[Rfam]
RNA sequence: ACUGCUGUAAGAAUAUGUUUGAUAUUUAGUUGGUUCCUGAUUAAACAACCCAAUAUCAAACAUAUCACACAGAAGC
Number, nucleotide and partner (000 for none) at each position: 001a000002c000003u000004g000005c072006u071007g070008u069009a000010a000011g066012a000013a065014u064015a063016u062017g061018u060019u059020u058021g057022a056023u055024a054025u053026u052027u000028a000029g049030u048031u047032g046033g000034u000035u000036c000037c000038u000039g000040a000041u000042u000043a000044a000045a000046c032047a031048a030049c029050c000051c000052a026053a025054u024055a023056u022057c021058a020059a019060a018061c017062a016063u015064a014065u013066c011067a000068c000069a008070c007071a006072g005073a000074a000075g000076c000
Overview
A member of the RNA family "mir-190 microRNA precursor family" from Lynx pardinus, 76 nucleotides long. A search with the family's covariance model found it, with a score of 50 bits. Lineage of the source: Eukaryota > Metazoa > Amniota > Felinae > Lynx. The base pairs follow the family's consensus structure, which was predicted with RNAalifold.